Background
Rfam assigns this 51-nucleotide RNA to the family "Glutamine riboswitch aptamer (glnA leader)".
RNA sequence: AUCGUUCAUCUCCAAGGAGACGGAAGUAGACUUAGGUCGAAGGAACGCAUG
Numbered sequence: 001a002u003c004g005u006u007c008a009u010c011u012c013c014a015a016g017g018a019g020a021c022g023g024a025a026g027u028a029g030a031c032u033u034a035g036g037u038c039g040a041a042g043g044a045a046c047g048c049a050u051g
Stems, first nucleotide, its partner, number of pairs: 003047005009020004023048001029038003
Pairs were carried over by alignment from the consensus structure, which is taken from published work. For this family Rfam cites "Structural and Dynamic Basis for Low-Affinity, High-Selectivity Binding of L-Glutamine by the Glutamine Riboswitch" (Ren et al., Cell Rep, 2015).